[Rfam]
RNA sequence: UAAUCAUUGAUGGAAUUCUAUUGGGUAUCCCCGAUUUUUAGGAAAAAAUUUCUUAGACAUAGUCAAUAAAGAUCAUUUUUUGUUCUGUUUCUCAAAGUGUCUUUCUUUUUUCCCUUCAAAUCUUCAUCUAUUCAAAGAAACUUGUAUAUAUUGCAUUUCGGUUAUGCGAUGCACUUUGUUCAUUUUAACUUUGGAUCAAUAUACCUCACCAUGAACAUGUUCUUUUCUAAUGACCAAAUAAAGAUGUUCUAGUAUAGUGACGAAGGUCAUGAAUGAGCGCCGAGGGAGGGAUAUAUUCGGGCAACGAGGAUGGAAAAAUGGAAUGAAUACUUCAUGGAGGCGUAGGAAAUAAAAUAGGGAUAAGUGGGUUUUCUGCUUGACUGUAUAGCAUGAUUGAGUUUUUCAGUCGUGUCUAUGUUCAAGUUUAUGGUAUUCUGUGGUUGAUUCUGUUGAUUUCACACGUUUCACUUCCAUAUAGUGUGUCAACCGAAACUCUACGUGAAGGUUUACUAUAAGAAAAAUUUCAAUUUGUUUUUAUUCUAUUGUUUACUCUCCGUGAUAUUUUUUCUCUUUUAUUGUCCUUGUCUUUUCUGGAUAUAUCCUUUGCACAUUGGUUUUAUUCAUUGUUUUCUAAUUAUGCUGGGAGUCUUUUUGUGUUGUAAGGAUUGGCGUGGGCGGGGCUUCAUUCUUCCAAACUUGGUGUACUAUGGUGCAGUGCGUUAUUGCUUGCAGUGAUGAAGUUGCUUCGAGUACUUAAAUGGAGAGGAGACGGAAAUAUUAAGGAAGAAAUGAAUGAGAAAUGAAAAUGUACAAAGACUUUGAUCAAGUAUGGUUUUGUUUUAUGCAUAUUUUUAUUACUAGAAGUUGGGGAGAUUUGAUGGUUUACAGAAGUCAUAAAUUCAAAUAUCCCGUUUAAUCGCUCAUCUAUUAAAGUUAAUAGUAGAAUGUAGUUUCAUACCCGGGAGAAAUUU
Numbered sequence: 001u002a003a004u005c006a007u008u009g010a011u012g013g014a015a016u017u018c019u020a021u022u023g024g025g026u027a028u029c030c031c032c033g034a035u036u037u038u039u040a041g042g043a044a045a046a047a048a049u050u051u052c053u054u055a056g057a058c059a060u061a062g063u064c065a066a067u068a069a070a071g072a073u074c075a076u077u078u079u080u081u082g083u084u085c086u087g088u089u090u091c092u093c094a095a096a097g098u099g100u101c102u103u104u105c106u107u108u109u110u111u112c113c114c115u116u117c118a119a120a121u122c123u124u125c126a127u128c129u130a131u132u133c134a135a136a137g138a139a140a141c142u143u144g145u146a147u148a149u150a151u152u153g154c155a156u157u158u159c160g161g162u163u164a165u166g167c168g169a170u171g172c173a174c175u176u177u178g179u180u181c182a183u184u185u186u187a188a189c190u191u192u193g194g195a196u197c198a199a200u201a202u203a204c205c206u207c208a209c210c211a212u213g214a215a216c217a218u219g220u221u222c223u224u225u226u227c228u229a230a231u232g233a234c235c236a237a238a239u240a241a242a243g244a245u246g247u248u249c250u251a252g253u254a255u256a257g258u259g260a261c262g263a264a265g266g267u268c269a270u271g272a273a274u275g276a277g278c279g280c281c282g283a284g285g286g287a288g289g290g291a292u293a294u295a296u297u298c299g300g301g302c303a304a305c306g307a308g309g310a311u312g313g314a315a316a317a318a319u320g321g322a323a324u325g326a327a328u329a330c331u332u333c334a335u336g337g338a339g340g341c342g343u344a345g346g347a348a349a350u351a352a353a354a355u356a357g358g359g360a361u362a363a364g365u366g367g368g369u370u371u372u373c374u375g376c377u378u379g380a381c382u383g384u385a386u387a388g389c390a391u392g393a394u395u396g397a398g399u400u401u402u403u404c405a406g407u408c409g410u411g412u413c414u415a416u417g418u419u420c421a422a423g424u425u426u427a428u429g430g431u432a433u434u435c436u437g438u439g440g441u442u443g444a445u446u447c448u449g450u451u452g453a454u455u456u457c458a459c460a461c462g463u464u465u466c467a468c469u470u471c472c473a474u475a476u477a478g479u480g481u482g483u484c485a486a487c488c489g490a491a492a493c494u495c496u497a498c499g500u501g502a503a504g505g506u507u508u509a510c511u512a513u514a515a516g517a518a519a520a521a522u523u524u525c526a527a528u529u530u531g532u533u534u535u536u537a538u539u540c541u542a543u544u545g546u547u548u549a550c551u552c553u554c555c556g557u558g559a560u561a562u563u564u565u566u567u568c569u570c571u572u573u574u575a576u577u578g579u580c581c582u583u584g585u586c587u588u589u590u591c592u593g594g595a596u597a598u599a600u601c602c603u604u605u606g607c608a609c610a611u612u613g614g615u616u617u618u619a620u621u622c623a624u625u626g627u628u629u630u631c632u633a634a635u636u637a638u639g640c641u642g643g644g645a646g647u648c649u650u651u652u653u654g655u656g657u658u659g660u661a662a663g664g665a666u667u668g669g670c671g672u673g674g675g676c677g678g679g680g681c682u683u684c685a686u687u688c689u690u691c692c693a694a695a696c697u698u699g700g701u702g703u704a705c706u707a708u709g710g711u712g713c714a715g716u717g718c719g720u721u722a723u724u725g726c727u728u729g730c731a732g733u734g735a736u737g738a739a740g741u742u743g744c745u746u747c748g749a750g751u752a753c754u755u756a757a758a759u760g761g762a763g764a765g766g767a768g769a770c771g772g773a774a775a776u777a778u779u780a781a782g783g784a785a786g787a788a789a790u791g792a793a794u795g796a797g798a799a800a801u802g803a804a805a806a807u808g809u810a811c812a813a814a815g816a817c818u819u820u821g822a823u824c825a826a827g828u829a830u831g832g833u834u835u836u837g838u839u840u841u842a843u844g845c846a847u848a849u850u851u852u853u854a855u856u857a858c859u860a861g862a863a864g865u866u867g868g869g870g871a872g873a874u875u876u877g878a879u880g881g882u883u884u885a886c887a888g889a890a891g892u893c894a895u896a897a898a899u900u901c902a903a904a905u906a907u908c909c910c911g912u913u914u915a916a917u918c919g920c921u922c923a924u925c926u927a928u929u930a931a932a933g934u935u936a937a938u939a940g941u942a943g944a945a946u947g948u949a950g951u952u953u954c955a956u957a958c959c960c961g962g963g964a965g966a967a968a969u970u971u
Stems, first nucleotide, its partner, number of pairs: 008894004018881009028871014046851004052844001054842003057838003061834003066828002072823004082817003086813001089810001091797004104792002107789005113783004121767005127761002132749002135746003139742003149734007159725004164720005170714006178705002181702004190695006204680004209675002216673006224665001228661002230657003241653004246648001247646003253642002257638004262631006269624009278288001280286002289602012304585001306583008320571003326567002329564001333558007342550004348544004353539002356536010369520006375424006384417005389411010426514007435505002437498004443493001445491003449487005457482005907964005914957002919951003922947003925943006
Dot-bracket structure: .......((((......(((((((((.((((((((((((((....((((..(.((((((.(((..((....((((......(((.(..(.((((.........((.(((((.((((....(((((.((...((.(((.(((.......(((((((...((((.(((((.((((((..((.((((.....((((((........((((.((.....((((((..(...(((((........((((.((((...((..((((.((((((.((((((((((.((...)).)((((((((((((...(.((((((((......(((...((.(...(((((((..((((..((((.((.((((((((((...((((((((((((...(((((((((((((((...)))))))))).))))).)))))).(((((((..((((((..(.(((.(((((...(((((................)))))))))).))).).)))).....))..)))))))))))))......)))))))))).)).))))..)))).))))))).....).)).)))....)))))))).).....)))))))))))).............))))))))).))))))...))))..)).))).).)))).)))..))...)..)))))))).)))).........))))))...)))).))...)))))).))))).))))..))))))).....))).))).))..........)).)))))............)))).))))).)).))))............)..).)))..))))...))...))).))).))).)...))))......)))))))))))))).))))))))).........))))............(((((..((...((((((((((((.......)))))).))).)))....))..))))).......

Rfam assigns this 971-nucleotide sequence from Saccharomyces mikatae to the family "Small nucleolar RNA snR86".
The family's consensus secondary structure was predicted with WAR.
The family is grouped with related families in Rfam's "SNORA48 clan".
Lineage of the source: Eukaryota > Fungi > saccharomyceta > Saccharomyces > Saccharomyces mikatae.
For this family Rfam cites "The complete set of H/ACA snoRNAs that guide rRNA pseudouridylations in Saccharomyces cerevisiae" (Torchet et al., RNA, 2005).